The family of this 244-nucleotide sequence from Streptomyces broussonetiae is "Streptomyces sRNA 4677". The base pairs follow the family's consensus structure. By type it is a small RNA. It scores 219 bits against the family's covariance model. The organism belongs to Streptomyces, within Bacteria.
[Rfam]
RNA sequence: CGCUCCGGUGCGACGGGCGGUCUUUUGCAAGGAAAGACCAGGGUGAAAGAACCCGACCAAGCCCCACCCCUCCCGCCCGCGGCGCAAACUCACCCACGAGGGUGAACAUCACCAACUCAACUGGAUUUCAGGCCUGUUGCCUGCCUUACGUUCGGCGCAGACAGCCGCAGACAUGCGACGGCCCUCGCAGGGACGGGCAUCCCGUUGCGAGGGCCUGACCACCGAGGAAGGUCACAACUUCCUG
Number, nucleotide and partner (000 for none) at each position: 001c000002g000003c000004u000005c000006c000007g223008g222009u221010g220011c000012g000013a000014c000015g000016g077017g076018c075019g074020g000021u000022c000023u000024u000025u000026u000027g000028c000029a000030a000031g000032g000033a000034a000035a000036g000037a000038c000039c000040a000041g000042g000043g000044u000045g000046a000047a000048a000049g000050a000051a000052c000053c000054c000055g000056a000057c000058c000059a000060a000061g000062c000063c000064c000065c000066a000067c000068c000069c000070c000071u000072c000073c000074c019075g018076c017077c016078c000079g000080c000081g000082g000083c000084g000085c000086a000087a000088a000089c000090u105091c104092a103093c102094c101095c100096a000097c000098g000099a000100g095101g094102g093103u092104g091105a090106a000107c000108a000109u000110c000111a000112c000113c000114a000115a000116c000117u000118c000119a000120a000121c155122u154123g153124g152125a000126u000127u000128u000129c000130a000131g000132g000133c000134c000135u000136g000137u000138u000139g000140c000141c000142u000143g000144c000145c000146u000147u000148a000149c000150g000151u000152u124153c123154g122155g121156c000157g000158c000159a000160g000161a000162c000163a000164g000165c000166c000167g000168c000169a000170g000171a000172c000173a000174u000175g000176c000177g000178a000179c000180g215181g214182c213183c212184c211185u000186c209187g208188c207189a000190g203191g202192g201193a200194c000195g000196g000197g000198c000199a000200u193201c192202c191203c190204g000205u000206u000207g188208c187209g186210a000211g184212g183213g182214c181215c180216u000217g000218a000219c000220c010221a009222c008223c007224g000225a000226g242227g241228a240229a239230g238231g000232u000233c000234a000235c000236a000237a000238c230239u229240u228241c227242c226243u000244g000